[Rfam]
RNA sequence: AGUCCCUGCCUUUUCAGGCAUCCUCUCCAAACUUUGGGGCUGCUCCUAACAGGGCAGCCCUUUUUUUUGCCCUCA
Numbered sequence: 001a002g003u004c005c006c007u008g009c010c011u012u013u014u015c016a017g018g019c020a021u022c023c024u025c026u027c028c029a030a031a032c033u034u035u036g037g038g039g040c041u042g043c044u045c046c047u048a049a050c051a052g053g054g055c056a057g058c059c060c061u062u063u064u065u066u067u068u069g070c071c072c073u074c075a
Stems, first nucleotide, its partner, number of pairs: 008019004037060009
The family of this 75-nucleotide sequence from Parasphingopyxis lamellibrachiae is "Makes More Granules Regulator RNA (mmgR)". The family's RNA type in Rfam is small RNA. SuhB later renamed mmgR (makes more granules regulator) was a putative non-coding RNA found multiple times in the Agrobacterium tumefaciens genome and related alpha-proteobacteria. Rfam 15.1 lists 1,791 matches to the family in 918 species. The match comes from Rfam's covariance-model search (53 bits). Taxonomically the source falls in Parasphingopyxis (Bacteria, Pseudomonadota, Sphingomonadales, Parasphingopyxidaceae).